[Rfam]
RNA sequence: CCUGCACGGGUUCGACCGCAGGUCGGGAUGUGAUCCACGGGAGCGGUCUCGGAGACGAGCCGUCACCGGCGUGAUUGAACCACUCA
Numbered sequence: 001c002c003u004g005c006a007c008g009g010g011u012u013c014g015a016c017c018g019c020a021g022g023u024c025g026g027g028a029u030g031u032g033a034u035c036c037a038c039g040g041g042a043g044c045g046g047u048c049u050c051g052g053a054g055a056c057g058a059g060c061c062g063u064c065a066c067c068g069g070c071g072u073g074a075u076u077g078a079a080c081c082a083c084u085c086a
Stems, first nucleotide, its partner, number of pairs: 001022005025081002032076004
Shown here is an 86-nucleotide RNA, a member of the family "eL15-Euryarchaeota ribosomal protein leader". It is annotated as a cis-regulatory leader. The literature on the family includes a 2020 paper in BMC Microbiol by Eckert and Weinberg, "Discovery of 20 novel ribosomal leader candidates in bacteria and archaea".